Description: The record is a 76-nucleotide RNA sequence from Robinsoniella sp. RHS, which matches "Fluoride riboswitch aptamer (crcB RNA motif)" in Rfam. Lineage of the source: Bacteria > Bacillati > Bacillota > Lachnospiraceae > Robinsoniella. The base pairs follow the family's consensus structure, which is taken from published work.
RNA sequence: AAAAUAAACGGGAAUGAGGUUCUCCCCAGGUACAACAAUACCUAAACUGCUAUUAGCUGAUGACUUCUGUUUUAGG
Numbered sequence: 001a002a003a004a005u006a007a008a009c010g011g012g013a014a015u016g017a018g019g020u021u022c023u024c025c026c027c028a029g030g031u032a033c034a035a036c037a038a039u040a041c042c043u044a045a046a047c048u049g050c051u052a053u054u055a056g057c058u059g060a061u062g063a064c065u066u067c068u069g070u071u072u073u074a075g076g
Stems, first nucleotide, its partner, number of pairs: 010026004016067006049057003
Gene Ontology terms of the family: positive regulation of gene expression and response to fluoride.